[Rfam]
RNA sequence: GUCUUGUCAGUGAUGUUAUUCAAAAACAAAUGUCUGAACAUAUGAGUUGCAGUGAUUCUAGGAUUUGACUGAGACAAGAC
Numbered sequence: 001g002u003c004u005u006g007u008c009a010g011u012g013a014u015g016u017u018a019u020u021c022a023a024a025a026a027c028a029a030a031u032g033u034c035u036g037a038a039c040a041u042a043u044g045a046g047u048u049g050c051a052g053u054g055a056u057u058c059u060a061g062g063a064u065u066u067g068a069c070u071g072a073g074a075c076a077a078g079a080c
Stems, first nucleotide, its partner, number of pairs: 002079007

The record is an 80-nucleotide RNA from Anguilla anguilla, which matches "Small nucleolar RNA SNORD72" in Rfam. The organism belongs to Anguilla, within Eukaryota. The literature on the family includes a 2001 paper in EMBO J by Huttenhofer et al., "RNomics: an experimental approach that identifies 201 candidates for novel, small, non-messenger RNAs in mouse". From the family's description: snoRNA HBII-240 belongs to the CD family of snoRNAs. It is the human orthologue of the mouse MBII-240 and is predicted to guide 2'O-ribose methylation of the large 28S rRNA at residue U4590. It scores 68 bits against the family's covariance model.